che1 RNA: a 101-nucleotide RNA from Streptomyces sp. UH6.
Rfam classes the family as a small RNA.
The base pairs follow the family's consensus structure, which is taken from published work.
RNA sequence: AGGACAGGGGGGUCUUCGCCCGUGGCGGAGCCUGUCCGAAAAGGUCGCACGGGACCACCUGUCCCAUGCGGCCAGUGGUUGUCGCUCGGGGGUGAUCGCCG
Numbered sequence: 001a002g003g004a005c006a007g008g009g010g011g012g013u014c015u016u017c018g019c020c021c022g023u024g025g026c027g028g029a030g031c032c033u034g035u036c037c038g039a040a041a042a043g044g045u046c047g048c049a050c051g052g053g054a055c056c057a058c059c060u061g062u063c064c065c066a067u068g069c070g071g072c073c074a075g076u077g078g079u080u081g082u083c084g085c086u087c088g089g090g091g092g093u094g095a096u097c098g099c100c101g
Stems, first nucleotide, its partner, number of pairs: 002037007014030007043073007